[Rfam]
RNA: Small nucleolar RNA SNORD81
RNA sequence: UGGAACAAAUGAUGAUAACCUUACCUUGAACUCUCUCACUGAACAGAGAUGAAAAUCUAAGGUCUGAGUUGUUCCU
Numbered sequence: 001u002g003g004a005a006c007a008a009a010u011g012a013u014g015a016u017a018a019c020c021u022u023a024c025c026u027u028g029a030a031c032u033c034u035c036u037c038a039c040u041g042a043a044c045a046g047a048g049a050u051g052a053a054a055a056u057c058u059a060a061g062g063u064c065u066g067a068g069u070u071g072u073u074c075c076u
Base pairs, nucleotide, nucleotide: 002075003074004073005072006071007070